[Rfam]
RNA sequence: UCCGUGGUAACGCGGAAUCUGAAGGAAGCGGGCGGCAAACUUCCGGUCUGAGGAAAACGAACUUCAUAUGAGGCUAGGUAUCACUGGGUGAGUUUGCAACACAAAACAAAGCCCUUUCUGCCGAAGGUGAUACAGAGUAAAUGAAGCAGAUAGAUGGAAGGAAAGAUUACACUC
Numbered sequence: 001u002c003c004g005u006g007g008u009a010a011c012g013c014g015g016a017a018u019c020u021g022a023a024g025g026a027a028g029c030g031g032g033c034g035g036c037a038a039a040c041u042u043c044c045g046g047u048c049u050g051a052g053g054a055a056a057a058c059g060a061a062c063u064u065c066a067u068a069u070g071a072g073g074c075u076a077g078g079u080a081u082c083a084c085u086g087g088g089u090g091a092g093u094u095u096g097c098a099a100c101a102c103a104a105a106a107c108a109a110a111g112c113c114c115u116u117u118c119u120g121c122c123g124a125a126g127g128u129g130a131u132a133c134a135g136a137g138u139a140a141a142u143g144a145a146g147c148a149g150a151u152a153g154a155u156g157g158a159a160g161g162a163a164a165g166a167u168u169a170c171a172c173u174c
Base pairs, nucleotide, nucleotide: 001016002015003014004013005012006011028174030172032170036165040160041159042158043157044156045155046151047150048149049148050147062146063145064144065143066142067141073138074137075136078133079132080131081130082129083128086114087113088112089111092107093106094105095104
RNA: Group II catalytic intron D1-D4-3
Organism: Bacillus methanolicus